[Rfam]
RNA: sok antitoxin (CssrC)
RNA sequence: GGGUGCUUAAGGCUUUCUGUCUUAAGCACGCUCAUUGUUAUUCCGAACAACCUUGAGAGUGUGGUGGACAGAGAGUUGAAGGCCCCGAGCAAUGUUUCCAUUAACUCGGGGGCUACUCUCACACAACCCUAGCAGGUUGAGAGUAGCCUCUUACCCUUUUUUUUGCAAGGAGUAAAAGGCAUG
Numbered sequence: 001g002g003g004u005g006c007u008u009a010a011g012g013c014u015u016u017c018u019g020u021c022u023u024a025a026g027c028a029c030g031c032u033c034a035u036u037g038u039u040a041u042u043c044c045g046a047a048c049a050a051c052c053u054u055g056a057g058a059g060u061g062u063g064g065u066g067g068a069c070a071g072a073g074a075g076u077u078g079a080a081g082g083c084c085c086c087g088a089g090c091a092a093u094g095u096u097u098c099c100a101u102u103a104a105c106u107c108g109g110g111g112g113c114u115a116c117u118c119u120c121a122c123a124c125a126a127c128c129c130u131a132g133c134a135g136g137u138u139g140a141g142a143g144u145a146g147c148c149u150c151u152u153a154c155c156c157u158u159u160u161u162u163u164u165g166c167a168a169g170g171a172g173u174a175a176a177a178g179g180c181a182u183g
Base pairs, nucleotide, nucleotide: 001086002085003084005083006082007081008080011077012076013075014074015073016072017071018070019069020068021067022066026062027061028060029059087107088106089105091102092101093100094099108150109149110148111147115144116143117142118141119140124139125138126137127136154179155178158175159174